[Rfam]
RNA sequence: CUAAAUUUAAUCCUCCGAGCCACUGAACCUAAGGUAGAGAGUACCAUGGUUCACUUGGCCGAUAGGGUUUAUCUGGAAACGGGUAAGCCUCCCGUGCGGAAAGGAGGUAGGAUUAUUUACUA
Numbered sequence: 001c002u003a004a005a006u007u008u009a010a011u012c013c014u015c016c017g018a019g020c021c022a023c024u025g026a027a028c029c030u031a032a033g034g035u036a037g038a039g040a041g042u043a044c045c046a047u048g049g050u051u052c053a054c055u056u057g058g059c060c061g062a063u064a065g066g067g068u069u070u071a072u073c074u075g076g077a078a079a080c081g082g083g084u085a086a087g088c089c090u091c092c093c094g095u096g097c098g099g100a101a102a103g104g105a106g107g108u109a110g111g112a113u114u115a116u117u118u119a120c121u122a
Stems, first nucleotide, its partner, number of pairs: 003116001012107005019059004024053006033045004065090011091099002
Rfam assigns this 122-nucleotide sequence from Desulforamulus aquiferis to the family "Molybdenum/Tungsten riboswitch aptamer (Moco RNA motif)".
It scores 74 bits against the family's covariance model.